[Rfam]
RNA sequence: CACGACGACGCGGGAGAGCUCACCGGCUCAGGGACGAGCACGGUGGCGCCGAAGGGGCAACAUCCCCGGAACCUCUCAGGCACCCAGACCGCGUCCGUCUG
Dot-bracket structure: ......(((((((......((((((...............)))))).(((((..(((...(......)....))))).))).......)))))))......
Numbered sequence: 001c002a003c004g005a006c007g008a009c010g011c012g013g014g015a016g017a018g019c020u021c022a023c024c025g026g027c028u029c030a031g032g033g034a035c036g037a038g039c040a041c042g043g044u045g046g047c048g049c050c051g052a053a054g055g056g057g058c059a060a061c062a063u064c065c066c067c068g069g070a071a072c073c074u075c076u077c078a079g080g081c082a083c084c085c086a087g088a089c090c091g092c093g094u095c096c097g098u099c100u101g
Stems, first nucleotide, its partner, number of pairs: 007095007020046006048081003051077002055075003061068001
Shown here is a 101-nucleotide RNA sequence from Friedmanniella luteola, a member of the family "Glycine riboswitch aptamer". About the family: This family represents the bacterial glycine riboswitch. The organism belongs to Friedmanniella, within Bacteria.